[Rfam]
RNA sequence: UCCGUCGCGAGGCGGAAUCUGAAGGAAGCUGGAGGCAAACGCACGGCUUGAGGUACACGAACCCAAUUAGAGGCGGUUGCAGUCGGAUGAAUCACCAUAGCAUGAUGAAAUCCAAAGCUGCCAAGGACUGCAGUCGUAAACUUGGGCAAGCGCGGGCGGAAAGAUGACGUU
Numbered sequence: 001u002c003c004g005u006c007g008c009g010a011g012g013c014g015g016a017a018u019c020u021g022a023a024g025g026a027a028g029c030u031g032g033a034g035g036c037a038a039a040c041g042c043a044c045g046g047c048u049u050g051a052g053g054u055a056c057a058c059g060a061a062c063c064c065a066a067u068u069a070g071a072g073g074c075g076g077u078u079g080c081a082g083u084c085g086g087a088u089g090a091a092u093c094a095c096c097a098u099a100g101c102a103u104g105a106u107g108a109a110a111u112c113c114a115a116a117g118c119u120g121c122c123a124a125g126g127a128c129u130g131c132a133g134u135c136g137u138a139a140a141c142u143u144g145g146g147c148a149a150g151c152g153c154g155g156g157c158g159g160a161a162a163g164a165u166g167a168c169g170u171u
Base pairs, nucleotide, nucleotide: 001016002015003014004013005012006011028171030169031168036163040158041157042156044154045153046151047150048149049148050147062146063145064144065143066142067140073137074136075135077133078132079131080130081129082128083127085113086112087111088110091106092105093104094103
Dot-bracket structure: ((((((....))))))...........(.((....(...(((.(((((((...........((((((.....(((.(((((((.((((..((((........))))...)))).............))))))).)))..).)))))))))).)).)))....)....)).)